[Rfam]
Nucleotides: 384
Stems, first nucleotide, its partner, number of pairs: 006024006025382004033362004039342002044068006053061002075338004080111002085106003089102001091100003115132005135334011152321002157317004165304004171297003176291005182201005203263002207258004214251003219242007227235002267282002270279001348357002364376004
Number, partner (000 for none) and nucleotide at each position: 001000g002000a003000a004000a005000a006024g007023a008022g009021g010020g011019g012000u013000g014000a015000g016000a017000a018000u019011c020010c021009c022008c023007u024006c025382c026381g027380c028379c029000g030000a031000a032000a033362g034361c035360c036359u037000a038000a039342g040341g041000g042000u043000u044068c045067c046066u047065g048064a049063g050000g051000a052000a053061g054060g055000u056000u057000c058000g059000u060054c061053c062000g063049c064048u065047c066046a067045g068044g069000g070000u071000a072000a073000g074000u075338c076337g077336g078335g079000a080111c081110c082000u083000a084000a085106g086105c087104c088000g089102a090000g091100g092099c093098c094000g095000a096000a097000a098093g099092g100091c101000g102089u103000a104087g105086g106085c107000g108000a109000u110081g111080g112000g113000c114000a115132a116131c117130a118129g119128g120000u121000g122000g123000a124000g125000a126000u127000u128119c129118c130117u131116g132115u133000a134000c135334c136333a137332c138331c139330u140329u141328c142327c143326g144325c145324c146000g147000u148000u149000u150000g151000a152321g153320c154000g155000a156000c157317g158316g159315g160314g161000g162000g163000a164000c165304g166303c167302a168301g169000g170000a171297g172296g173295g174000u175000a176291g177290g178289a179288g180287a181000u182201c183200g184199c185198g186197c187000g188000g189000u190000u191000g192000g193000a194000a195000a196000u197186g198185c199184g200183c201182g202000u203263c204262c205000a206000a207258g208257c209256g210255g211000u212000g213000a214251g215250g216249c217000u218000g219242a220241a221240g222239g223238g224237g225236c226000a227235g228234g229000c230000a231000a232000a233000u234228c235227c236225g237224u238223c239222c240221c241220u242219u243000c244000g245000a246000a247000a248000g249216g250215c251214u252000g253000a254000g255210c256209c257208g258207u259000g260000a261000u262204g263203g264000c265000g266000a267282g268281g269000g270279a271000a272000c273000c274000a275000u276000a277000a278000g279270u280000a281268c282267c283000g284000a285000a286000g287180u288179c289178u290177u291176u292000g293000a294000u295173c296172c297171c298000a299000c300000a301168c302167u303166g304165c305000c306000g307000a308000g309000a310000a311000a312000a313000g314160c315159c316158u317157c318000u319000a320153g321152c322000g323000a324145g325144g326143c327142g328141g329140a330139a331138g332137g333136u334135g335078c336077c337076c338075g339000u340000a341040c342039c343000g344000c345000a346000a347000a348357c349356c350000g351000a352000c353000a354000c355000a356349g357348g358000u359036a360035g361034g362033c363000g364376a365375g366374g367373a368000g369000a370000g371000a372000a373367u374366c375365c376364u377000c378000a379028g380027g381026c382025g383000c384000g

The family of this 384-nucleotide part of an RNA from Melghirimyces profundicolus is "Bacterial large subunit ribosomal RNA".
The family's consensus secondary structure is taken from published work.
A search with the family's covariance model found it, with a score of 2935 bits.